[Rfam]
The record is a 90-nucleotide RNA from Enterococcus ratti, which matches "RNA anti-toxin A" in Rfam. For this family Rfam cites "Abundance of type I toxin-antitoxin systems in bacteria: searches for new candidates and discovery of novel families" (Fozo et al., Nucleic Acids Res, 2010). NCBI's taxonomy places the organism under Bacteria, Bacilli, Lactobacillales, Enterococcaceae, Enterococcus. The match comes from Rfam's covariance-model search (54 bits).
RNA sequence: UACUUGAGACAAGAAAAAGGAGCUAUGCGCUAACAUAACUCCAUGUAGAACCGUUAAAAAGACGGUGACUGAAAUGAAUAGUUUUUUUCA
Numbered sequence: 001u002a003c004u005u006g007a008g009a010c011a012a013g014a015a016a017a018a019g020g021a022g023c024u025a026u027g028c029g030c031u032a033a034c035a036u037a038a039c040u041c042c043a044u045g046u047a048g049a050a051c052c053g054u055u056a057a058a059a060a061g062a063c064g065g066u067g068a069c070u071g072a073a074a075u076g077a078a079u080a081g082u083u084u085u086u087u088u089c090a
Stems, first nucleotide, its partner, number of pairs: 024037004050066006